Record summary
The family of this 107-nucleotide sequence from Oceanobacillus iheyensis is "SAM riboswitch aptamer (S box leader)". The organism belongs to Oceanobacillus iheyensis, within Bacteria.

[Rfam]
Nucleotides: 107
Stems, first nucleotide, its partner, number of pairs: 001107008013043004021032003026081004044073004049069002051065001053063002077099001082096005
Number, partner (000 for none) and nucleotide at each position: 001107u002106u003105c004104u005103u006102a007101u008100c009000a010000u011000g012000a013043g014042a015041g016040g017000c018000g019000g020000a021032g022031g023030g024000a025000a026081a027080u028079g029078g030023c031022c032021c033000a034000a035000c036000g037000a038000a039000a040016c041015c042014u043013c044073g045072g046071c047070a048000a049069c050068a051065g052000g053063u054062u055000c056000u057000u058000a059000u060000u061000a062054g063053a064000a065051u066000a067000c068050u069049g070047u071046g072045c073044c074000a075000a076000u077099u078029c079028c080027a081026u082096c083095a084094a085093g086092c087000a088000a089000a090000u091000u092086g093085c094084u095083u096082g097000a098000a099077a100008g101007a102006u103005a104004a105003g106002a107001g